The record is an 86-nucleotide RNA sequence from Chiloscyllium punctatum, which matches "Selenocysteine transfer RNA" in Rfam. Rfam 15.1 lists 4,211 matches to the family in 3,344 species.
RNA sequence: GCCUGGAUGAUUCCUCGUGGUCUCGGGUGCAGGCUUCAAACCUAUAGCUCCCUACCGACAGAGUGGUUCAACUCCACCUUCCAGGC
Number, nucleotide and partner (000 for none) at each position: 001g086002c085003c084004u083005g082006g081007a080008u000009g078010a000011u000012u027013c026014c025015u000016c000017g022018u000019g000020g000021u000022c017023u000024c000025g014026g013027g012028u046029g045030c000031a043032g042033g041034c000035u000036u000037c000038a000039a000040a000041c033042c032043u031044a000045u029046a028047g000048c061049u060050c000051c000052c057053u000054a000055c000056c000057g052058a000059c000060a049061g048062a000063g077064u076065g075066g074067u000068u000069c000070a000071a000072c000073u000074c066075c065076a064077c063078c009079u000080u007081c006082c005083a004084g003085g002086c001
Record summary
On this family, see Mizutani and Goto, FEBS Lett 2000: "Eukaryotic selenocysteine tRNA has the 9/4 secondary structure". A search with the family's covariance model found it, with a score of 55 bits. The family's consensus secondary structure is taken from published work.